RNA: Group II catalytic intron D1-D4-6
RNA sequence: AAAGUCCCACCUGACCAAAGUGUAACCGACAGGUCAGUAGCGAAGUCCGGGGGCAAACCCGGUAACGGGAGUCCGAAGCCGGACGGAGUGAGAAUGCGGGCCGUGUCAUUGAGCCCCGAAAAGGGUAUGGUCUAUGGUCGCGGACGCAGGAUAAACUCUGAGUCAGCUCAGGGUGAAAGCCGACGGUAUUCAGCGAACGGAAGGCAGCAGACCAUGUUGCGCUACGGUGAGUGGCAUGGUCUCCGCCGGGGGCUGAGAGCA
Numbered sequence: 001a002a003a004g005u006c007c008c009a010c011c012u013g014a015c016c017a018a019a020g021u022g023u024a025a026c027c028g029a030c031a032g033g034u035c036a037g038u039a040g041c042g043a044a045g046u047c048c049g050g051g052g053g054c055a056a057a058c059c060c061g062g063u064a065a066c067g068g069g070a071g072u073c074c075g076a077a078g079c080c081g082g083a084c085g086g087a088g089u090g091a092g093a094a095u096g097c098g099g100g101c102c103g104u105g106u107c108a109u110u111g112a113g114c115c116c117c118g119a120a121a122a123g124g125g126u127a128u129g130g131u132c133u134a135u136g137g138u139c140g141c142g143g144a145c146g147c148a149g150g151a152u153a154a155a156c157u158c159u160g161a162g163u164c165a166g167c168u169c170a171g172g173g174u175g176a177a178a179g180c181c182g183a184c185g186g187u188a189u190u191c192a193g194c195g196a197a198c199g200g201a202a203g204g205c206a207g208c209a210g211a212c213c214a215u216g217u218u219g220c221g222c223u224a225c226g227g228u229g230a231g232u233g234g235c236a237u238g239g240u241c242u243c244c245g246c247c248g249g250g251g252g253c254u255g256a257g258a259g260c261a
Stems, first nucleotide, its partner, number of pairs: 012036005020030002023230001025228002038091001040089002046083005052074002058069004110255001111253001114251005140246005179205003184199002187196001210241011
Dot-bracket structure: ...........(((((...((.[.[[..)).))))).(.((....(((((.((....((((....))))...))....)))))....)).)..................((..(((((.....................(((((..................................(((..((.(........).))...)))....(((((((((((......]].]))))))))))))))))))))).).)......